The family of this 142-nucleotide RNA from Rhododendron simsii is "U4 spliceosomal RNA". From the family's description: U4 small nuclear RNA (U4 snRNA) is a component of the major U2-dependent spliceosome. The family's RNA type in Rfam is spliceosomal small nuclear RNA. On this family, see Zwieb, Nucleic Acids Res 1997: "The uRNA database". Taxonomically the source falls in Rhododendron (Eukaryota, Magnoliopsida, Gunneridae, Ericoideae).
[Rfam]
RNA sequence: AUCUUUGCACUUGGAACAAUGACGUAGCUAUUGAGGUAAUAACCGAGGCGCAUCAAUUGCUAGUUGGAAAAAAUCUUACUGGCACUAAUGAACUGGCCCGUUGGCCCGUGAGGUCCACAGUAAUAAACAAUAUACUAGUAUA
Numbered sequence: 001a002u003c004u005u006u007g008c009a010c011u012u013g014g015a016a017c018a019a020u021g022a023c024g025u026a027g028c029u030a031u032u033g034a035g036g037u038a039a040u041a042a043c044c045g046a047g048g049c050g051c052a053u054c055a056a057u058u059g060c061u062a063g064u065u066g067g068a069a070a071a072a073a074u075c076u077u078a079c080u081g082g083c084a085c086u087a088a089u090g091a092a093c094u095g096g097c098c099c100g101u102u103g104g105c106c107c108g109u110g111a112g113g114u115c116c117a118c119a120g121u122a123a124u125a126a127a128c129a130a131u132a133u134a135c136u137a138g139u140a141u142a
Base pairs, nucleotide, nucleotide: 021054022053024051025050027049028048029047035044036043037042084121085120086119090115091114093112131142132141133140134139